[Rfam]
Nucleotides: 085
Base pairs, nucleotide, nucleotide: 001027002026004023005022006021007020008019009018010017011016040047041046049085050084051083058078059077060076062074063073
Number, partner (000 for none) and nucleotide at each position: 001027c002026u003000a004023c005022c006021g007020a008019u009018a010017u011016c012000g013000u014000g015000a016011g017010g018009u019008g020007u021006u022005g023004g024000g025000a026002g027001g028000g029000a030000a031000c032000a033000a034000c035000a036000g037000a038000a039000g040047u041046c042000a043000g044000c045000c046041g047040a048000g049085g050084c051083c052000g053000u054000a055000g056000u057000c058078g059077u060076g061000a062074u063073g064000u065000a066000a067000a068000a069000c070000c071000g072000g073063c074062a075000c076060c077059a078058u079000g080000a081000a082000g083051g084050g085049c
A member of the RNA family "Group II catalytic intron D1-D4-1" from Prodigiosinella confusarubida, 85 nucleotides long.
NCBI's taxonomy places the organism under Bacteria, Pseudomonadati, Pseudomonadota, Pectobacteriaceae, Prodigiosinella.
Pairs were carried over by alignment from the consensus structure.
The match comes from Rfam's covariance-model search (61 bits).